Rfam assigns this 98-nucleotide sequence from Brevundimonas sp. S30B to the family "Glycine riboswitch aptamer".
NCBI's taxonomy places the organism under Bacteria, Alphaproteobacteria, Caulobacterales, Caulobacteraceae, Brevundimonas.
Gene Ontology term of the family: glycine biosynthetic process.

RNA sequence: GGCGCUCUCGCGGGAGAGAUCGGACCAGGAAACUGGCCCCCGACGCCGAAGGCGCAACCGCCCCGGAAACGCUCAGGCAAACGGACCGCGACGGCGCA
Dot-bracket structure: .....(.((((((......((((................)))).(((((..(((...((.....))...))))).))).......)))))).).....